This 117-nucleotide RNA belongs to the Rfam family "RT-4 RNA".
RNA sequence: UACACCGCUGACCUUUGAAACAAGGCUUACUCACCAUUAUUGGGAAGAUGAGUGGAAAUGAGUCCGACACAGGACGCACGGUAAAGCGGUCGCACCUGCCGUGCGUAGGAGAUAGAA
Numbered sequence: 001u002a003c004a005c006c007g008c009u010g011a012c013c014u015u016u017g018a019a020a021c022a023a024g025g026c027u028u029a030c031u032c033a034c035c036a037u038u039a040u041u042g043g044g045a046a047g048a049u050g051a052g053u054g055g056a057a058a059u060g061a062g063u064c065c066g067a068c069a070c071a072g073g074a075c076g077c078a079c080g081g082u083a084a085a086g087c088g089g090u091c092g093c094a095c096c097u098g099c100c101g102u103g104c105g106u107a108g109g110a111g112a113u114a115g116a117a
Stems, first nucleotide, its partner, number of pairs: 003054003010027001012025004031048002034043003063110003074106010086093002